[Rfam]
RNA sequence: GGGUUGAUGAUGAGUGAUCAUUAGGAUCUAGCGGAUUUCUAUGAGGCCGCCAGCCAGUGAUCUUAUAAAAUUUGUUACACACACUGAAGCCC
Number, nucleotide and partner (000 for none) at each position: 001g092002g091003g090004u089005u088006g000007a000008u000009g000010a000011u000012g000013a000014g000015u000016g000017a000018u000019c000020a000021u000022u000023a000024g000025g000026a000027u000028c000029u000030a000031g000032c000033g000034g000035a000036u000037u000038u000039c000040u000041a000042u000043g000044a000045g000046g000047c000048c000049g000050c000051c000052a000053g000054c000055c000056a000057g000058u000059g000060a000061u000062c000063u000064u000065a000066u000067a000068a000069a000070a000071u000072u000073u000074g000075u000076u000077a000078c000079a000080c000081a000082c000083a000084c000085u000086g000087a000088a005089g004090c003091c002092c001

Shown here is a 92-nucleotide RNA from Apostasia shenzhenica, a member of the family "Small nucleolar RNA R11/Z151". Rfam links the family to the GO terms nucleolus and RNA processing. Rfam classes the family as a C/D-box small nucleolar RNA. The source organism's lineage runs through Eukaryota, Streptophyta, Mesangiospermae, Liliopsida and Apostasia.